[Rfam]
RNA sequence: UAGAACGGAUGAGGCGCAUCAAUCAUUAGUACUUAUAUACUUAACUUCUGCAAAGUGUAUAUAACGAAAGGGUGAGAUGCCGAAAUGGCCGGUGGUCAGCAGACACCGGCUUUUGGAUCCAGUGGUUAAGAGCUGUGGAUUUGUCAUUAUUUGAAAGAAUAAUGGAGGGCAUCGCUUGUA
Numbered sequence: 001u002a003g004a005a006c007g008g009a010u011g012a013g014g015c016g017c018a019u020c021a022a023u024c025a026u027u028a029g030u031a032c033u034u035a036u037a038u039a040c041u042u043a044a045c046u047u048c049u050g051c052a053a054a055g056u057g058u059a060u061a062u063a064a065c066g067a068a069a070g071g072g073u074g075a076g077a078u079g080c081c082g083a084a085a086u087g088g089c090c091g092g093u094g095g096u097c098a099g100c101a102g103a104c105a106c107c108g109g110c111u112u113u114u115g116g117a118u119c120c121a122g123u124g125g126u127u128a129a130g131a132g133c134u135g136u137g138g139a140u141u142u143g144u145c146a147u148u149a150u151u152u153g154a155a156a157g158a159a160u161a162a163u164g165g166a167g168g169g170c171a172u173c174g175c176u177u178g179u180a
Stems, first nucleotide, its partner, number of pairs: 008173004016080005024072001033064008084114002087111008115142007123135004144165007
The record is a 180-nucleotide RNA from Jeotgalicoccus saudimassiliensis, which matches "Lysine riboswitch aptamer" in Rfam. The organism belongs to Jeotgalicoccus, within Bacteria.